[Rfam]
RNA sequence: AAGUGGGGACGACCUCACCGCUCCAGUAUAAAUCGGGGACGACCCCG
Numbered sequence: 001a002a003g004u005g006g007g008g009a010c011g012a013c014c015u016c017a018c019c020g021c022u023c024c025a026g027u028a029u030a031a032a033u034c035g036g037g038g039a040c041g042a043c044c045c046c047g
Base pairs, nucleotide, nucleotide: 003018004017005016006015007014008013034047035046036045037044038043
A member of the RNA family "Guanidine-II riboswitch aptamer (mini-ykkC)" from a Methylophilaceae bacterium, 47 nucleotides long. The organism belongs to Methylophilaceae, within Bacteria. Rfam 15.1 lists 1,589 matches to the family in 1,229 species. Rfam describes the family as follows. Simpler in structure and has fewer highly conserved nucleotide positions than the ykkC-yxkD leader. The match comes from Rfam's covariance-model search (49 bits).